Rfam assigns this 80-nucleotide RNA from Pan troglodytes to the family "mir-31 microRNA precursor family". Rfam links the family to the GO terms gene silencing by miRNA and RISC complex.

[Rfam]
RNA sequence: GACAGGAAAGAUGGCAAUAUGUUGGCAUAGCAGGUUCCCAGUUCAACAGCUAUGCCAGCAUCUUGCCUCCUCUCCAGUUC
Numbered sequence: 001g002a003c004a005g006g007a008a009a010g011a012u013g014g015c016a017a018u019a020u021g022u023u024g025g026c027a028u029a030g031c032a033g034g035u036u037c038c039c040a041g042u043u044c045a046a047c048a049g050c051u052a053u054g055c056c057a058g059c060a061u062c063u064u065g066c067c068u069c070c071u072c073u074c075c076a077g078u079u080c
Stems, first nucleotide, its partner, number of pairs: 005075003009071002013067005019061003023057009
It scores 59 bits against the family's covariance model. The organism belongs to Pan, within Eukaryota.